[Rfam]
RNA: Small nucleolar RNA snoR104
RNA sequence: GGGGAGCAUCUGGGAGUUAUGAUGUUACCUGAUAUAAUCUUCCUAAAUUGAACCUUGUAUUGCAACACCUUGUAGUGCCUGAGUAAGUUCUGCAAGUCAACAAUGAGGUACAUAAAA
Numbered sequence: 001g002g003g004g005a006g007c008a009u010c011u012g013g014g015a016g017u018u019a020u021g022a023u024g025u026u027a028c029c030u031g032a033u034a035u036a037a038u039c040u041u042c043c044u045a046a047a048u049u050g051a052a053c054c055u056u057g058u059a060u061u062g063c064a065a066c067a068c069c070u071u072g073u074a075g076u077g078c079c080u081g082a083g084u085a086a087g088u089u090c091u092g093c094a095a096g097u098c099a100a101c102a103a104u105g106a107g108g109u110a111c112a113u114a115a116a117a
Base pairs, nucleotide, nucleotide: 001030002029003028005026006025007024008023009022010021055110057109069096070095071094072093073092074091075090077088078087